Overview
A member of the RNA family "mir-166 microRNA precursor family" from Punica granatum, 96 nucleotides long. Pairs were carried over by alignment from the consensus structure, which was predicted with PFOLD. About the family: This family represents the plant microRNA (miRNA) precursor mir-166. For this family Rfam cites "MicroRNAs in plants" (Reinhart et al., Genes Dev, 2002). Rfam 15.1 lists 2,599 matches to the family in 229 species. The match comes from Rfam's covariance-model search (63 bits).
RNA sequence: GGUGCGGGGAAUGUCGUCUGGUGCAAAAAAUUACCCUUCAUGAUGGAUCGGGCCAUGAUGACGUUGUUUCUUGGACCAGGCUUCAUUCCCCUCACC
Dot-bracket structure: ((((.((((((((..((((((..(((............................................)))..))))))..)))))))).))))